[Rfam]
RNA sequence: UCUCAUAUAAACAACGGUGCUAUAAUGAAUGCCUAAAGCACUAUUGCUUCUUUGUUUUUCAAUGGAAAACAAAUGAAGUUUGUGAUUAGGCAGCGGCCAGACAACCGUAGGGAUGGUAUCCACAGAUGUCGGGUUUUGCAAUCAUCCUUUUAUCUACUGAUUCCAUCUCACAAUU
Numbered sequence: 001u002c003u004c005a006u007a008u009a010a011a012c013a014a015c016g017g018u019g020c021u022a023u024a025a026u027g028a029a030u031g032c033c034u035a036a037a038g039c040a041c042u043a044u045u046g047c048u049u050c051u052u053u054g055u056u057u058u059u060c061a062a063u064g065g066a067a068a069a070c071a072a073a074u075g076a077a078g079u080u081u082g083u084g085a086u087u088a089g090g091c092a093g094c095g096g097c098c099a100g101a102c103a104a105c106c107g108u109a110g111g112g113a114u115g116g117u118a119u120c121c122a123c124a125g126a127u128g129u130c131g132g133g134u135u136u137u138g139c140a141a142u143c144a145u146c147c148u149u150u151u152a153u154c155u156a157c158u159g160a161u162u163c164c165a166u167c168u169c170a171c172a173a174u175u
Stems, first nucleotide, its partner, number of pairs: 003065004009057002012054003016050002019047002022044003026040002110169007118162001128150001131147004

This 175-nucleotide sequence from Cephalotus follicularis belongs to the Rfam family "small nucleolar RNA snoR143". The family's RNA type in Rfam is H/ACA-box small nucleolar RNA. Rfam links the family to the GO terms nucleolus and RNA processing. The literature on the family includes a 2009 paper in Nucleic Acids Res by Chen and Wu, "Mining small RNA sequencing data: a new approach to identify small nucleolar RNAs in Arabidopsis".